[Rfam]
RNA sequence: GUAGCAUCGAUGAUGAGGCAAUCUUAUUCGUUAUCCUUGCACUUUGAUUUACUGUGAAGAAACUCACGGGGAAUAUUGUUCCUGAGAUGCUA
Numbered sequence: 001g002u003a004g005c006a007u008c009g010a011u012g013a014u015g016a017g018g019c020a021a022u023c024u025u026a027u028u029c030g031u032u033a034u035c036c037u038u039g040c041a042c043u044u045u046g047a048u049u050u051a052c053u054g055u056g057a058a059g060a061a062a063c064u065c066a067c068g069g070g071g072a073a074u075a076u077u078g079u080u081c082c083u084g085a086g087a088u089g090c091u092a
Stems, first nucleotide, its partner, number of pairs: 002092007